[Rfam]
RNA: Archaeal small subunit ribosomal RNA, nucleotides 863 to 1462
Organism: Halolamina pelagica
RNA sequence: UGGCGGGGGAGCACUACAACCGGAGGAGCCUGCGGUUUAAUUGGACUCAACGCCGGUAACCUUACCAGCCCCGACUACGGUGAUGACGGUCAGGUUGAUGACCUCGCCACGACGCCGUAGAGAGGUGGUGCAUGGCCGCCGUCAGCUCGUACCGUGAGGCGUCCUGUUAAGUCAGGCAACGAGCGAGACCCGCACUCUUAAUUGCCAGCAUGUCCCUUGAGGAUGAUGGGUACAUUAGGAGGACUGCCGCCGCCAAGGCGGAGGAAGGAACGGGCAACGGUAGGUCAGUAUGCCCCGAAUGGGCUGGGCAACACGCGGGCUACAAUGGCCGAGACAAUGGGUUCCAACCCCGAGAGGGAGCGGUAAUCUCAGAAACUCGGUCGUAGUUCGGAUUGUGGACUGCAACUCGUCCACAUGAAGCUGGAUUCGGUAGUAAUCGCAUUCCAGGAGAGUGCGGUGAAUACGUCCCUGCUCCUUGCACACACCGCCCGUCAAAGCACCCGAGUGGGGUCCGGAUGAGGCCUGCCUAGCAGGUCGAAUCUGGGCUCCGCAAGGGGGCUUAAGUCGUAACAAGGUAGCCGUAGGGGAAUCUGCGGCUGG
Numbered sequence: 001u002g003g004c005g006g007g008g009g010a011g012c013a014c015u016a017c018a019a020c021c022g023g024a025g026g027a028g029c030c031u032g033c034g035g036u037u038u039a040a041u042u043g044g045a046c047u048c049a050a051c052g053c054c055g056g057u058a059a060c061c062u063u064a065c066c067a068g069c070c071c072c073g074a075c076u077a078c079g080g081u082g083a084u085g086a087c088g089g090u091c092a093g094g095u096u097g098a099u100g101a102c103c104u105c106g107c108c109a110c111g112a113c114g115c116c117g118u119a120g121a122g123a124g125g126u127g128g129u130g131c132a133u134g135g136c137c138g139c140c141g142u143c144a145g146c147u148c149g150u151a152c153c154g155u156g157a158g159g160c161g162u163c164c165u166g167u168u169a170a171g172u173c174a175g176g177c178a179a180c181g182a183g184c185g186a187g188a189c190c191c192g193c194a195c196u197c198u199u200a201a202u203u204g205c206c207a208g209c210a211u212g213u214c215c216c217u218u219g220a221g222g223a224u225g226a227u228g229g230g231u232a233c234a235u236u237a238g239g240a241g242g243a244c245u246g247c248c249g250c251c252g253c254c255a256a257g258g259c260g261g262a263g264g265a266a267g268g269a270a271c272g273g274g275c276a277a278c279g280g281u282a283g284g285u286c287a288g289u290a291u292g293c294c295c296c297g298a299a300u301g302g303g304c305u306g307g308g309c310a311a312c313a314c315g316c317g318g319g320c321u322a323c324a325a326u327g328g329c330c331g332a333g334a335c336a337a338u339g340g341g342u343u344c345c346a347a348c349c350c351c352g353a354g355a356g357g358g359a360g361c362g363g364u365a366a367u368c369u370c371a372g373a374a375a376c377u378c379g380g381u382c383g384u385a386g387u388u389c390g391g392a393u394u395g396u397g398g399a400c401u402g403c404a405a406c407u408c409g410u411c412c413a414c415a416u417g418a419a420g421c422u423g424g425a426u427u428c429g430g431u432a433g434u435a436a437u438c439g440c441a442u443u444c445c446a447g448g449a450g451a452g453u454g455c456g457g458u459g460a461a462u463a464c465g466u467c468c469c470u471g472c473u474c475c476u477u478g479c480a481c482a483c484a485c486c487g488c489c490c491g492u493c494a495a496a497g498c499a500c501c502c503g504a505g506u507g508g509g510g511u512c513c514g515g516a517u518g519a520g521g522c523c524u525g526c527c528u529a530g531c532a533g534g535u536c537g538a539a540u541c542u543g544g545g546c547u548c549c550g551c552a553a554g555g556g557g558g559c560u561u562a563a564g565u566c567g568u569a570a571c572a573a574g575g576u577a578g579c580c581g582u583a584g585g586g587g588a589a590u591c592u593g594c595g596g597c598u599g600g
Stems, first nucleotide, its partner, number of pairs: 001482002003479003007476007016466002020430005025323001027321008035312002041056004065307007075120004080115002088108003092104003124296002127294004133290002135285003138281004145184006152159002163176004190273003195241007205230002209228003212224004244264002247261005327382007339370003344363002349358003389420001394415007436458008485574001487571001490567002493564001495561004500556003505551013520536007576599010